[Rfam]
Shown here is a 115-nucleotide RNA sequence from Sphingobium sp. TCM1, a member of the family "ALIL pseudoknot". The match comes from Rfam's covariance-model search (97 bits).
RNA sequence: GGCAUAUUUUGCGCAGGCGGAGCUCGACCGCCACGGCAAAUGGUGAUGUCGUUCAUCGACGCUCACCGGGAAGAACUGGGUAUCGAGCCGAUCUGCCGGGAACUGGCGAUCGCCC
Numbered sequence: 001g002g003c004a005u006a007u008u009u010u011g012c013g014c015a016g017g018c019g020g021a022g023c024u025c026g027a028c029c030g031c032c033a034c035g036g037c038a039a040a041u042g043g044u045g046a047u048g049u050c051g052u053u054c055a056u057c058g059a060c061g062c063u064c065a066c067c068g069g070g071a072a073g074a075a076c077u078g079g080g081u082a083u084c085g086a087g088c089c090g091a092u093c094u095g096c097c098g099g100g101a102a103c104u105g106g107c108g109a110u111c112g113c114c115c
Stems, first nucleotide, its partner, number of pairs: 016032005078115003089112002092109002096105001098103001

Description: Pairs were carried over by alignment from the consensus structure, which is taken from published work. The family's RNA type in Rfam is cis-regulatory element.